[Rfam]
RNA sequence: CAAUCAAAUAUGUAACACCCUCAUAUAAUAGCGGGAAUAUGGCCCGCGAGUCUCUACCAGGUUACCGUAAAUGACCUGACUAUGAGCGGGCAAUACAGAUAU
Numbered sequence: 001c002a003a004u005c006a007a008a009u010a011u012g013u014a015a016c017a018c019c020c021u022c023a024u025a026u027a028a029u030a031g032c033g034g035g036a037a038u039a040u041g042g043c044c045c046g047c048g049a050g051u052c053u054c055u056a057c058c059a060g061g062u063u064a065c066c067g068u069a070a071a072u073g074a075c076c077u078g079a080c081u082a083u084g085a086g087c088g089g090g091c092a093a094u095a096c097a098g099a100u101a102u
Stems, first nucleotide, its partner, number of pairs: 018088001020086006029049001031047005058078007